[Rfam]
RNA sequence: AAUCAAUGGUGAAAAUAGCCAAAUCUGAGCAUCAGAAGACCUUCCAGUCUACCCGAUACAUCUUGCUUAAAAAAAAAAAA
Numbered sequence: 001a002a003u004c005a006a007u008g009g010u011g012a013a014a015a016u017a018g019c020c021a022a023a024u025c026u027g028a029g030c031a032u033c034a035g036a037a038g039a040c041c042u043u044c045c046a047g048u049c050u051a052c053c054c055g056a057u058a059c060a061u062c063u064u065g066c067u068u069a070a071a072a073a074a075a076a077a078a079a080a
Base pairs, nucleotide, nucleotide: 029059031057032056033055037050038049039048040047
A member of the RNA family "Small nucleolar RNA U2-19" from Nyctereutes procyonoides, 80 nucleotides long.
Rfam 15.1 lists 1,147 matches to the family in 531 species.
Its family is annotated with nucleolus and RNA processing in the Gene Ontology.
The family's RNA type in Rfam is C/D-box small nucleolar RNA.
The base pairs follow the family's consensus structure, which is taken from published work.
A search with the family's covariance model found it, with a score of 68 bits.
Lineage of the source: Eukaryota > Eumetazoa > Vertebrata > Amniota > Nyctereutes.